The record is an 84-nucleotide sequence from Neisseria shayeganii, which matches "sRNA-Xcc1" in Rfam. Pairs were carried over by alignment from the consensus structure, which was predicted with RNAalifold. The literature on the family includes a 2011 paper in RNA Biol by Chen et al., "sRNA-Xcc1, an integron-encoded transposon- and plasmid-transferred trans-acting sRNA, is under the positive control of the key virulence regulators HrpG and HrpX of Xanthomonas campestris pathovar campestris". A search with the family's covariance model found it, with a score of 66 bits.
[Rfam]
RNA sequence: GCCGAGAGGGCGAGGAAUACAAUACCCGCAAGGGGAAUAACUCCAGCCUGCUUGUAAGGUUUACGAACCUCUUGGCCGCCCAUU
Numbered sequence: 001g002c003c004g005a006g007a008g009g010g011c012g013a014g015g016a017a018u019a020c021a022a023u024a025c026c027c028g029c030a031a032g033g034g035g036a037a038u039a040a041c042u043c044c045a046g047c048c049u050g051c052u053u054g055u056a057a058g059g060u061u062u063a064c065g066a067a068c069c070u071c072u073u074g075g076c077c078g079c080c081c082a083u084u
Stems, first nucleotide, its partner, number of pairs: 001076009012044001014042001016038001025034003045061005